Rfam assigns this 533-nucleotide part of an RNA from Vavraia culicis to the family "Microsporidia small subunit ribosomal RNA".
It is one of the family's seed sequences.
NCBI's taxonomy places the organism under Eukaryota, Opisthokonta, Fungi, Vavraia, Vavraia culicis.
A reference for the family is Yusupov et al. (2001), "Crystal structure of the ribosome at 5.5 A resolution", Science.
Rfam links the family to the GO terms structural constituent of ribosome and ribosome.

RNA sequence: UGACGGAAGAACACCACAAGGAGUGGAGUGUGCGGCUUAAUUUGACUCAACGCGGGACAGCUUACCAGGCCCGACGGUCGCACGAGUGUGGUACACGAUAGGCCGGAGAGUGGUGCAUGGCCGUUAACGACAAGUGGGGUGACCUUUGGGUUAAGUCCGGGAAGUAGUGAGACCCCUGCCGGCGCGCCGGGACAGGUGCUCAAAGCACAGGAAGGAAGGGUCAAGAACAGGUCAGUGAUGCCCUUAGAUGGUCUGGGCUGCACGCGCACUACAGUGGUCGCAGAAAUCAGUGCCCGAGCGGCAAUGGCGAUCGAGAGGGAACGAGCUCUGGAAGGGGCUCGGGAACGAGGAAUUGCUAGUAAUCGUGGGCUCAUUAAGACACGGUGAAUACGUCCCUGUUCUUUGUACACACCGCCCGUCGUUAUCGAAGAUGGAGUCAGGCGCGAACAAGCGAGAGCGAGUGAGUGCAGGGUUCUAGAUGUGAUACAAGUCGUAACAAGGUAGCUGUAGGAGAACCUGCAGCUGGAUCACGC
Numbered sequence: 001u002g003a004c005g006g007a008a009g010a011a012c013a014c015c016a017c018a019a020g021g022a023g024u025g026g027a028g029u030g031u032g033c034g035g036c037u038u039a040a041u042u043u044g045a046c047u048c049a050a051c052g053c054g055g056g057a058c059a060g061c062u063u064a065c066c067a068g069g070c071c072c073g074a075c076g077g078u079c080g081c082a083c084g085a086g087u088g089u090g091g092u093a094c095a096c097g098a099u100a101g102g103c104c105g106g107a108g109a110g111u112g113g114u115g116c117a118u119g120g121c122c123g124u125u126a127a128c129g130a131c132a133a134g135u136g137g138g139g140u141g142a143c144c145u146u147u148g149g150g151u152u153a154a155g156u157c158c159g160g161g162a163a164g165u166a167g168u169g170a171g172a173c174c175c176c177u178g179c180c181g182g183c184g185c186g187c188c189g190g191g192a193c194a195g196g197u198g199c200u201c202a203a204a205g206c207a208c209a210g211g212a213a214g215g216a217a218g219g220g221u222c223a224a225g226a227a228c229a230g231g232u233c234a235g236u237g238a239u240g241c242c243c244u245u246a247g248a249u250g251g252u253c254u255g256g257g258c259u260g261c262a263c264g265c266g267c268a269c270u271a272c273a274g275u276g277g278u279c280g281c282a283g284a285a286a287u288c289a290g291u292g293c294c295c296g297a298g299c300g301g302c303a304a305u306g307g308c309g310a311u312c313g314a315g316a317g318g319g320a321a322c323g324a325g326c327u328c329u330g331g332a333a334g335g336g337g338c339u340c341g342g343g344a345a346c347g348a349g350g351a352a353u354u355g356c357u358a359g360u361a362a363u364c365g366u367g368g369g370c371u372c373a374u375u376a377a378g379a380c381a382c383g384g385u386g387a388a389u390a391c392g393u394c395c396c397u398g399u400u401c402u403u404u405g406u407a408c409a410c411a412c413c414g415c416c417c418g419u420c421g422u423u424a425u426c427g428a429a430g431a432u433g434g435a436g437u438c439a440g441g442c443g444c445g446a447a448c449a450a451g452c453g454a455g456a457g458c459g460a461g462u463g464a465g466u467g468c469a470g471g472g473u474u475c476u477a478g479a480u481g482u483g484a485u486a487c488a489a490g491u492c493g494u495a496a497c498a499a500g501g502u503a504g505c506u507g508u509a510g511g512a513g514a515a516c517c518u519g520c521a522g523c524u525g526g527a528u529c530a531c532g533c
Stems, first nucleotide, its partner, number of pairs: 001409002003406003007403007016393002020356001022354003025272001027270008035261002041056004065256007075105005086096004109244002112242004118238001119236001120232003123228003130168002133165001135163001136145003147160001149158002174220004179190004193211001196208005276312006317346001322341007362385006414497001417493002420490001423486005429480001432477007441468004447462002451458002502525010